RNA: mir-7 microRNA precursor family
RNA sequence: UGGUCUGCUGCCAGGUGGAAGACUAGUGAUUUUGUUGUUGAAAUAUGAAAAUGAGCAACAAGUCACAGUCUCCCGUCUAGCACAGACUU
Numbered sequence: 001u002g003g004u005c006u007g008c009u010g011c012c013a014g015g016u017g018g019a020a021g022a023c024u025a026g027u028g029a030u031u032u033u034g035u036u037g038u039u040g041a042a043a044u045a046u047g048a049a050a051a052u053g054a055g056c057a058a059c060a061a062g063u064c065a066c067a068g069u070c071u072c073c074c075g076u077c078u079a080g081c082a083c084a085g086a087c088u089u
Stems, first nucleotide, its partner, number of pairs: 002088005009082001011080001013078006020071005026066007034059006